[Rfam]
RNA sequence: UGAUAGGUAUGAAAAGUGGCGUUGAAGCUGAAUAAGUUUAUAAAGCGUUUGAAUGAAGAAAUGGAAAGUAAAUAAGUUGACGAUGAAUUACAAAAUAG
Numbered sequence: 001u002g003a004u005a006g007g008u009a010u011g012a013a014a015a016g017u018g019g020c021g022u023u024g025a026a027g028c029u030g031a032a033u034a035a036g037u038u039u040a041u042a043a044a045g046c047g048u049u050u051g052a053a054u055g056a057a058g059a060a061a062u063g064g065a066a067a068g069u070a071a072a073u074a075a076g077u078u079g080a081c082g083a084u085g086a087a088u089u090a091c092a093a094a095a096u097a098g
Base pairs, nucleotide, nucleotide: 016091017090018089019088020085021084022083023082024081026078027077028076029075036073037072038071039070040069041068046063047062048061049060050059
RNA: Streptococcus sRNA SpF56
Organism: Streptococcus pneumoniae